RNA sequence: CUUCACCGACCCCAACCACAACGGACGACCCUCCGGCCGGUCCUGGCCGUACGUCGCCAGCAAUGCCUGAGCCUC
Numbered sequence: 001c002u003u004c005a006c007c008g009a010c011c012c013c014a015a016c017c018a019c020a021a022c023g024g025a026c027g028a029c030c031c032u033c034c035g036g037c038c039g040g041u042c043c044u045g046g047c048c049g050u051a052c053g054u055c056g057c058c059a060g061c062a063a064u065g066c067c068u069g070a071g072c073c074u075c
Stems, first nucleotide, its partner, number of pairs: 016024002031071003038065002043060003047056001049054001
Description: Shown here is a 75-nucleotide RNA from Streptomyces griseus, a member of the family "ASpks TB sRNA". On this family, see Arnvig and Young, Mol Microbiol 2009: "Identification of small RNAs in Mycobacterium tuberculosis". The family's consensus secondary structure is taken from published work. The family has 77 seed sequences and 9,052 matches in Rfam 15.1.